[Rfam]
RNA sequence: AAUGAUAGUAGAGGUUGCGCUACUUAUUAGUAAACUGUAUGAUGUCCCGGAGACAGGCGAUUACAGAGGAAAGGAUGUGGCGCCGAAAGGAUUCAUUCCGGAGAUGAAUUUUUGGGUAUAUGGUUAAGAGCCAUAUAACUGUCAUUAGGAAGUACCCUGAUGGAGAGCUACUUAUAAG
Number, nucleotide and partner (000 for none) at each position: 001a000002a000003u000004g000005a000006u000007a172008g171009u170010a169011g168012a000013g000014g000015u000016u000017g083018c082019g081020c080021u079022a078023c077024u000025u075026a000027u000028u000029a000030g000031u000032a000033a000034a000035c066036u065037g064038u063039a062040u000041g000042a000043u000044g000045u000046c000047c000048c000049g000050g000051a000052g000053a000054c000055a000056g000057g000058c000059g000060a000061u000062u039063a038064c037065a036066g035067a000068g000069g000070a000071a000072a000073g000074g000075a025076u000077g023078u022079g021080g020081c019082g018083c017084c000085g000086a000087a113088a112089g111090g110091a109092u108093u107094c106095a105096u104097u103098c000099c000100g000101g000102a000103g097104a096105u095106g094107a093108a092109u091110u090111u089112u088113u087114g140115g139116g000117u137118a136119u135120a134121u133122g132123g131124u130125u000126a000127a000128g000129a000130g124131c123132c122133a121134u120135a119136u118137a117138a000139c115140u114141g000142u163143c162144a161145u160146u159147a158148g157149g000150a000151a000152g000153u000154a000155c000156c000157c148158u147159g146160a145161u144162g143163g142164a000165g000166a000167g000168c011169u010170a009171c008172u007173u000174a000175u000176a000177a000178g000
RNA: Lysine riboswitch aptamer